[Rfam]
RNA sequence: CGGAGGUGCAUUGUAGUCGCAUUGUCUGUCUCAAAUUUGCCCGCGGCAAUACAACUGCAGUGCAAGCUCCG
Number, nucleotide and partner (000 for none) at each position: 001c071002g070003g069004a068005g000006g067007u064008g063009c062010a061011u060012u059013g058014u057015a056016g055017u000018c000019g052020c000021a050022u049023u048024g047025u046026c045027u000028g000029u000030c000031u000032c000033a000034a000035a000036u000037u000038u000039g000040c000041c000042c000043g000044c000045g026046g025047c024048a023049a022050u021051a000052c019053a000054a000055c016056u015057g014058c013059a012060g011061u010062g009063c008064a007065a000066g000067c006068u004069c003070c002071g001

Background
Rfam assigns this 71-nucleotide sequence from Drosophila virilis to the family "mir-33 microRNA precursor family". A reference for the family is Li et al. (2009), "Direct sequencing and expression analysis of a large number of miRNAs in Aedes aegypti and a multi-species survey of novel mosquito miRNAs", BMC Genomics. Lineage of the source: Eukaryota > Arthropoda > Pancrustacea > Brachycera > Drosophila. It is one of the family's seed sequences.